[Rfam]
RNA: RAGATH-8 RNA
Nucleotides: 244
Base pairs, nucleotide, nucleotide: 001244002243003242004241005238006237007236009234024101026099027098028097044093045092046091047090048089049088053066054065055064056063069082070081071080072079109215110214111213112212116198121194122193123192124191125190126179127178134160135159136158139156163175164174165173
Number, partner (000 for none) and nucleotide at each position: 001244g002243a003242a004241a005238c006237a007236a008000a009234g010000c011000a012000a013000g014000u015000a016000g017000g018000a019000a020000g021000g022000a023000c024101a025000c026099g027098g028097g029000u030000g031000a032000a033000g034000c035000g036000a037000u038000a039000g040000g041000g042000c043000u044093a045092c046091a047090c048089g049088c050000a051000a052000g053066u054065g055064a056063c057000a058000u059000g060000g061000u062000g063056g064055u065054c066053a067000g068000g069082c070081u071080g072079c073000c074000g075000g076000a077000u078000a079072g080071c081070a082069g083000a084000u085000a086000a087000u088049g089048c090047g091046u092045g093044u094000g095000a096000u097028u098027c099026u100000u101024u102000g103000g104000a105000a106000a107000c108000a109215g110214c111213a112212a113000a114000g115000g116198a117000u118000g119000g120000u121194u122193u123192a124191u125190c126179u127178g128000a129000u130000c131000u132000g133000a134160a135159a136158g137000a138000c139156a140000g141000u142000a143000u144000u145000g146000a147000u148000g149000a150000a151000a152000u153000c154000a155000u156139u157000u158136c159135u160134u161000c162000a163175c164174u165173g166000g167000a168000a169000g170000a171000u172000g173165c174164a175163g176000c177000a178127c179126a180000g181000u182000a183000g184000a185000a186000a187000g188000a189000a190125g191124g192123u193122g194121g195000u196000u197000a198116u199000g200000u201000g202000a203000a204000g205000a206000a207000a208000a209000u210000a211000g212112u213111u214110g215109c216000a217000g218000c219000a220000u221000g222000g223000a224000u225000u226000g227000a228000a229000c230000a231000g232000a233000u234009u235000c236007u237006u238005g239000a240000a241004u242003u243002u244001c